[Rfam]
RNA sequence: AAGGUCUGUCGCCGAUCUCUCCCAUCCCCUGGAGUGAUCCCCGGAACGAGGCUUCUCCCCGAGCCCUCGUUCCCCGAGCCCCGCCGGCCCCCCCUGCCUGCGGGGCUUUUUU
Numbered sequence: 001a002a003g004g005u006c007u008g009u010c011g012c013c014g015a016u017c018u019c020u021c022c023c024a025u026c027c028c029c030u031g032g033a034g035u036g037a038u039c040c041c042c043g044g045a046a047c048g049a050g051g052c053u054u055c056u057c058c059c060c061g062a063g064c065c066c067u068c069g070u071u072c073c074c075c076g077a078g079c080c081c082c083g084c085c086g087g088c089c090c091c092c093c094c095u096g097c098c099u100g101c102g103g104g105g106c107u108u109u110u111u112u
Stems, first nucleotide, its partner, number of pairs: 004012001006011001014039004019034004043073007050065004077107008086098003
The family of this 112-nucleotide sequence from Luteimonas aestuarii is "Xanthomonadaceae sRNA sX13". Taxonomically the source falls in Luteimonas (Bacteria, Pseudomonadati, Pseudomonadota, Gammaproteobacteria). The base pairs follow the family's consensus structure, which was predicted with CMfinder. The match comes from Rfam's covariance-model search (74 bits).